The family of this 122-nucleotide RNA sequence from Peptoniphilus harei is "Ribosomal protein L10 leader". On this family, see Yakhnin et al., Nucleic Acids Res 2015: "Ribosomal protein L10(L12)4 autoregulates expression of the Bacillus subtilis rplJL operon by a transcription attenuation mechanism". Taxonomically the source falls in Peptoniphilus harei (Bacteria, Bacillati, Tissierellales, Peptoniphilaceae).
[Rfam]
RNA sequence: AAUACUUAUGUUACUAAGCCGCAGACAGUAGGUGGCACUGCCAUAAAUCCUACCGAGGUUUGAAAUUCGGAUUUAUUUGAUUUUCACAUCUCACGGCGGCGUGAGAUUUUUUUAUUUUGGGG
Numbered sequence: 001a002a003u004a005c006u007u008a009u010g011u012u013a014c015u016a017a018g019c020c021g022c023a024g025a026c027a028g029u030a031g032g033u034g035g036c037a038c039u040g041c042c043a044u045a046a047a048u049c050c051u052a053c054c055g056a057g058g059u060u061u062g063a064a065a066u067u068c069g070g071a072u073u074u075a076u077u078u079g080a081u082u083u084u085c086a087c088a089u090c091u092c093a094c095g096g097c098g099g100c101g102u103g104a105g106a107u108u109u110u111u112u113u114a115u116u117u118u119g120g121g122g
Base pairs, nucleotide, nucleotide: 028053029052030051031050032049034042035041036040088107089106090105091104092103093102094101095100